[Rfam]
RNA: mir-1302 microRNA precursor family
Organism: Loxodonta africana
RNA sequence: UUUUAAAUAUAAGUAUGUUCCAUGGAAUAUUUGGGACAUAUUUGUACUAAAA
Numbered sequence: 001u002u003u004u005a006a007a008u009a010u011a012a013g014u015a016u017g018u019u020c021c022a023u024g025g026a027a028u029a030u031u032u033g034g035g036a037c038a039u040a041u042u043u044g045u046a047c048u049a050a051a052a
Base pairs, nucleotide, nucleotide: 006048008046009045010044011043012042014040015039016038018036019035020034021033022031